RNA sequence: UAUCUUUGCGCGCUGAUAGACAUACUAUCAUAUACAUGAAUCUCAUUAAAACAAUAUUGGAAUG
Numbered sequence: 001u002a003u004c005u006u007u008g009c010g011c012g013c014u015g016a017u018a019g020a021c022a023u024a025c026u027a028u029c030a031u032a033u034a035c036a037u038g039a040a041u042c043u044c045a046u047u048a049a050a051a052c053a054a055u056a057u058u059g060g061a062a063u064g
Base pairs, nucleotide, nucleotide: 014030015029016028017027018026019025
RNA: S15-Flavobacteria ribosomal protein leader
Organism: Dokdonia sinensis